[Rfam]
RNA sequence: UCCUUUCGAUACAACAAACAUCUGUGUCCGGCGAUCCUGGCGUGCCUCCGGGUACUGUCGGUCGAUUGUCGCGACAGUUCGACGCCAUAUAGAGCCCUGACACUUUCCUGAGGACGUUCUGGUCGACAGAUUUGAGAUCAAAUGCGGCGGCGCGAGGUCUUGAGCUCUUCGUGAGCUCGGCUUCACGCUGUCCGGGCGCUAUAUUCCUGAUCGUUUCCUGAGCCCGUCGGGCGUUGAAGGUUGGGAAAAACCAUAGCUUUGCCUACAUUU
Dot-bracket structure: .................(.((((((((((((.((((((((((((((....))))).)))))..)))).))).))).......((.(....((.(.(................).).))...).)))))))).)..........(((...(.(...((((..((((((.....))))))))))...).))))...((((((((........((....(((..((((...)))).....)))....))......)))))...))).......

Rfam assigns this 270-nucleotide RNA sequence from Rachicladosporium sp. CCFEE 5018 to the family "A. fumigatus sRNA Afu_309". The family's consensus secondary structure was predicted with WAR. For this family Rfam cites "Small ncRNA transcriptome analysis from Aspergillus fumigatus suggests a novel mechanism for regulation of protein synthesis" (Jochl et al., Nucleic Acids Res, 2008). By type it is a small RNA.